[Rfam]
RNA sequence: UACCAUAUAUUUAAACCUAUGAAUGGGAAUUUGCCUCUUUCCUGGUUCCACUGUAGAGUGAAAGAAUUCCUGGCUCUUUCUGUUGCAGAGCUGACUUUGUGACAUUCUGCUGUUGCUGUACAGAGUUGGGUAACAUAC
Numbered sequence: 001u002a003c004c005a006u007a008u009a010u011u012u013a014a015a016c017c018u019a020u021g022a023a024u025g026g027g028a029a030u031u032u033g034c035c036u037c038u039u040u041c042c043u044g045g046u047u048c049c050a051c052u053g054u055a056g057a058g059u060g061a062a063a064g065a066a067u068u069c070c071u072g073g074c075u076c077u078u079u080c081u082g083u084u085g086c087a088g089a090g091c092u093g094a095c096u097u098u099g100u101g102a103c104a105u106u107c108u109g110c111u112g113u114u115g116c117u118g119u120a121c122a123g124a125g126u127u128g129g130g131u132a133a134c135a136u137a138c
Base pairs, nucleotide, nucleotide: 002059003058006055007054008053009052014047015046016045017044021041022040023039025037026036027035067133068132070130071129072127073126074125075124076123077122081120082119085116086115087114089111090110091109093107094106
Shown here is a 138-nucleotide RNA sequence from Crocuta crocuta, a member of the family "Small nucleolar RNA SNORA46". NCBI's taxonomy places the organism under Eukaryota, Eumetazoa, Craniata, Euteleostomi, Crocuta. The family has 22 seed sequences and 582 matches in Rfam 15.1. ACA46 is a member of the H/ACA class of snoRNA that guide the sites of modification of uridines to pseudouridines. Rfam links the family to the GO terms RNA processing and nucleolus.